[Rfam]
RNA sequence: UGUGUGCGGGUCUGUGGUUGAAAGUCGAUGCCAGUCGCAGGCGAAACGACCCACGUAAGGCAACUCGUGGUUGCUGAGCAUGGUGCGGCUUAGGAGUAAGUCCUGCCCGCGUUGCUCCCGGCUCUCGGGGGAGCGCGGAGAUGAGGUGACGCGUGCCAUCAGUGGCUCCGAAGGGUCUACCGCCGGUGACGGUCGGUGCCGCCGGAGUCCGGCCGCAACUCUCACCGCAGGCGAGUGUGGGGUCAAAGACCAGGUCAGCCGCCCGCA
Numbered sequence: 001u002g003u004g005u006g007c008g009g010g011u012c013u014g015u016g017g018u019u020g021a022a023a024g025u026c027g028a029u030g031c032c033a034g035u036c037g038c039a040g041g042c043g044a045a046a047c048g049a050c051c052c053a054c055g056u057a058a059g060g061c062a063a064c065u066c067g068u069g070g071u072u073g074c075u076g077a078g079c080a081u082g083g084u085g086c087g088g089c090u091u092a093g094g095a096g097u098a099a100g101u102c103c104u105g106c107c108c109g110c111g112u113u114g115c116u117c118c119c120g121g122c123u124c125u126c127g128g129g130g131g132a133g134c135g136c137g138g139a140g141a142u143g144a145g146g147u148g149a150c151g152c153g154u155g156c157c158a159u160c161a162g163u164g165g166c167u168c169c170g171a172a173g174g175g176u177c178u179a180c181c182g183c184c185g186g187u188g189a190c191g192g193u194c195g196g197u198g199c200c201g202c203c204g205g206a207g208u209c210c211g212g213c214c215g216c217a218a219c220u221c222u223c224a225c226c227g228c229a230g231g232c233g234a235g236u237g238u239g240g241g242g243u244c245a246a247a248g249a250c251c252a253g254g255u256c257a258g259c260c261g262c263c264c265g266c267a
Base pairs, nucleotide, nucleotide: 001267002266003265004264006262007261008260009259012258013257014256015252016251017250018249019248028238029237030236031041033090034089035088036087037086038085039084050083051082058075059074062071081245102231103230104229105228106227107138108137109136110135111134112133113132142224143223144222145221151216152215
Notes
raiA RNA: a 267-nucleotide RNA. The sequence is in the family's curated seed alignment.